[Rfam]
RNA sequence: CCAACUUUUCCGUAAGUUGAGCCUAAUAUCAACUGCAUUACUGGUAACGGUAGUGUGGUAAGCUGAUAUGAAAAUGUAGCCCUAUUUAGAGGUGAAGCCGUGAGGCAGAACCGAAACUGUUAGCACAAUACGGUUAGGGAG
Numbered sequence: 001c002c003a004a005c006u007u008u009u010c011c012g013u014a015a016g017u018u019g020a021g022c023c024u025a026a027u028a029u030c031a032a033c034u035g036c037a038u039u040a041c042u043g044g045u046a047a048c049g050g051u052a053g054u055g056u057g058g059u060a061a062g063c064u065g066a067u068a069u070g071a072a073a074a075u076g077u078a079g080c081c082c083u084a085u086u087u088a089g090a091g092g093u094g095a096a097g098c099c100g101u102g103a104g105g106c107a108g109a110a111c112c113g114a115a116a117c118u119g120u121u122a123g124c125a126c127a128a129u130a131c132g133g134u135u136a137g138g139g140a141g
Base pairs, nucleotide, nucleotide: 002019003018004017005016006015007014027068028067029066030065031064032059033058034057035056036055037054038053039052040051041050042049043048082089083088091112092111093110098105099104116134117133118132119131120130